[Rfam]
RNA sequence: UAAUAAAAACAGGGGAGCUUGUACUUACAGGCUGAGAGGAAGUUUUGAACUUCGACCCUUUACCUGAUGCGGAUAAUGCCGCCGUAGGAAGUCAUGAACGAGAGAUU
Dot-bracket structure: .....(..((((((..(((((......)))))......(((((.....)))))..))))...((((..((((......))))..))))..))..)............
A member of the RNA family "TPP riboswitch aptamer (THI element)" from Blautia hydrogenotrophica, 107 nucleotides long.
Rfam links the family to the GO term thiamine pyrophosphate binding.
The organism belongs to Blautia hydrogenotrophica, within Bacteria.
It scores 67 bits against the family's covariance model.